Shown here is a 106-nucleotide RNA, a member of the family "c-di-GMP-II-GAG riboswitch aptamer".
Rfam's curators put it in the seed alignment.
Pairs were carried over by alignment from the consensus structure, which is taken from published work.
On this family, see Weinberg et al., Proc Natl Acad Sci U S A 2017: "Bioinformatic analysis of riboswitch structures uncovers variant classes with altered ligand specificity".
RNA sequence: CGACGGCACGGAGGCACGGAGCCGAGAGGCUCCGCCAGCGGAGCGUUCCACCUCGGUCGCCUAGACGGCUCGCGCAGGGCCAAUGGCGAGACCGACCCUUCCGUAU
Numbered sequence: 001c002g003a004c005g006g007c008a009c010g011g012a013g014g015c016a017c018g019g020a021g022c023c024g025a026g027a028g029g030c031u032c033c034g035c036c037a038g039c040g041g042a043g044c045g046u047u048c049c050a051c052c053u054c055g056g057u058c059g060c061c062u063a064g065a066c067g068g069c070u071c072g073c074g075c076a077g078g079g080c081c082a083a084u085g086g087c088g089a090g091a092c093c094g095a096c097c098c099u100u101c102c103g104u105a106u
Stems, first nucleotide, its partner, number of pairs: 003104004008099001010097002013081003023074002026071003030068001055093002057089005